Shown here is a 78-nucleotide RNA sequence from Orthoflavivirus louisense, a member of the family "General Flavivirus exoribonuclease-resistant RNA element". From the family's description: The exoribonuclease-resistant RNA elements (xrRNA) are described throughout all groups of flaviviruses. For this family Rfam cites "A highly structured, nuclease-resistant, noncoding RNA produced by flaviviruses is required for pathogenicity" (Pijlman et al., Cell Host Microbe, 2008). Lineage of the source: Viruses > Orthornavirae > Kitrinoviricota > Orthoflavivirus > Orthoflavivirus louisense. Rfam's curators put it in the seed alignment.

[Rfam]
RNA sequence: GUAAGUCAGACCAAUUAGUUUUGCCACCGGAUGUCAGGUAAACGGUGCUGUCUGUAACCUGGCCCCAGGUGACUGGGU
Numbered sequence: 001g002u003a004a005g006u007c008a009g010a011c012c013a014a015u016u017a018g019u020u021u022u023g024c025c026a027c028c029g030g031a032u033g034u035c036a037g038g039u040a041a042a043c044g045g046u047g048c049u050g051u052c053u054g055u056a057a058c059c060u061g062g063c064c065c066c067a068g069g070u071g072a073c074u075g076g077g078u
Stems, first nucleotide, its partner, number of pairs: 001058002004053002007050001008021004027045003064077005